Shown here is a 390-nucleotide RNA from SAR116 cluster bacterium MED-G04, a member of the family "Bacterial RNase P class A". The family's RNA type in Rfam is ribozyme. Taxonomically the source falls in Puniceispirillales (SeqCode) (Bacteria, Pseudomonadati, Pseudomonadota, Alphaproteobacteria).
[Rfam]
RNA sequence: UCAGAUGGCUGGAUGGCCGCUGGCGGGUUCGCCCCGUCAGAGGAAAGUCCGGGCUCCACGGAACCACGGUGCCGGGUAACCCCCGGCGAGGGUGACCUCAGGGAAAGUGCCACAGAAAAAAUACCGCCAUGGUGAUCAUGGCAAGGGUGAAAAGGUGCGGUAAGAGCGCACCGCGGUUCUGGUAACAGAACUGGCAGGGUAAACCCCACCGGGAGCAAGACCAUGUAGGAACGCAAAAGGGGGCUUCGGCCUCCAGCGGGGCGGUUUCGUCCGUGCGUUCGGGUAGGUUGCUAGCGUUGGCUGGUAACAGCCAUCCCAGAUGAAUGGCCAUCCAUCGUCAGGCUGACGCCAUGGCGAGGACAGAACCCGGCUUACAGGCCAUCUGACCCU
Numbered sequence: 001u002c003a004g005a006u007g008g009c010u011g012g013a014u015g016g017c018c019g020c021u022g023g024c025g026g027g028u029u030c031g032c033c034c035c036g037u038c039a040g041a042g043g044a045a046a047g048u049c050c051g052g053g054c055u056c057c058a059c060g061g062a063a064c065c066a067c068g069g070u071g072c073c074g075g076g077u078a079a080c081c082c083c084c085g086g087c088g089a090g091g092g093u094g095a096c097c098u099c100a101g102g103g104a105a106a107g108u109g110c111c112a113c114a115g116a117a118a119a120a121a122u123a124c125c126g127c128c129a130u131g132g133u134g135a136u137c138a139u140g141g142c143a144a145g146g147g148u149g150a151a152a153a154g155g156u157g158c159g160g161u162a163a164g165a166g167c168g169c170a171c172c173g174c175g176g177u178u179c180u181g182g183u184a185a186c187a188g189a190a191c192u193g194g195c196a197g198g199g200u201a202a203a204c205c206c207c208a209c210c211g212g213g214a215g216c217a218a219g220a221c222c223a224u225g226u227a228g229g230a231a232c233g234c235a236a237a238a239g240g241g242g243g244c245u246u247c248g249g250c251c252u253c254c255a256g257c258g259g260g261g262c263g264g265u266u267u268c269g270u271c272c273g274u275g276c277g278u279u280c281g282g283g284u285a286g287g288u289u290g291c292u293a294g295c296g297u298u299g300g301c302u303g304g305u306a307a308c309a310g311c312c313a314u315c316c317c318a319g320a321u322g323a324a325u326g327g328c329c330a331u332c333c334a335u336c337g338u339c340a341g342g343c344u345g346a347c348g349c350c351a352u353g354g355c356g357a358g359g360a361c362a363g364a365a366c367c368c369g370g371c372u373u374a375c376a377g378g379c380c381a382u383c384u385g386a387c388c389c390u
Base pairs, nucleotide, nucleotide: 001386002385003384004383005382006381007380008379009378010377011375012332013331014330015329016328017327018326020040021039022038023037024036025035026034027033045373046372047371049370050369051368052367053366054215055214056213057212062267063266065264067211068210069209070208071207072086073085074084075083076082087101088099089098090097091096102206103205107204108203109200110199111198124146125145126142127141128140129139130138131137132136154172155171156170157169158168159167173195174193175192176191177190178189179188180187181186219289220288221287222286229280230279231278232277233276234275259272260271261270262269296315298313299312300311301310302309303308